The record is a 57-nucleotide RNA from Chiloscyllium punctatum, which matches "Antizyme RNA frameshifting stimulation element" in Rfam. It is annotated as a frameshift element. The base pairs follow the family's consensus structure, which is taken from published work. This family represents a structural element which is found in antizyme mRNA and is known to promote frameshifting. Antizyme genes have have two partially overlapping open reading frames, the second, which encodes the functional protein requires +1 translational frameshifting. This frameshift is stimulated by a pseudoknot present 3' of the frameshift site in the antizyme mRNA. The frameshifting efficiency is dependent on the level of polyamines in the cell, when the polyamine concentration is high frameshifting is more likely to occur which leads to an increase in the quantity of functional antizyme produced. The functional antizyme acts to reduce ornithine decarboxylase (ODC) activity which leads to a drop in polyamines present in the cell. Therefore, this family can be thought of as a biosensor for intracellular free polyamines. Rfam links the family to the GO term translational frameshifting.

[Rfam]
RNA sequence: UGAUGCCCCUCACCCAUCAGUUGAAGAUCCCGGGUGGACGAGGGAGUGGAAGGGAUC
Number, nucleotide and partner (000 for none) at each position: 001u000002g000003a000004u000005g000006c000007c044008c043009c042010u041011c040012a000013c000014c037015c036016a035017u034018c033019a000020g000021u000022u000023g000024a000025a000026g057027a056028u055029c054030c053031c052032g000033g018034g017035u016036g015037g014038a000039c000040g011041a010042g009043g008044g007045a000046g000047u000048g000049g000050a000051a000052g031053g030054g029055a028056u027057c026

Background
A search with the family's covariance model found it, with a score of 59 bits. For this family Rfam cites "Identification of a new antizyme mRNA +1 frameshifting stimulatory pseudoknot in a subset of diverse invertebrates and its apparent absence in intermediate species" (Ivanov et al., J Mol Biol, 2004). The source organism's lineage runs through Eukaryota, Chondrichthyes, Elasmobranchii, Selachii and Chiloscyllium.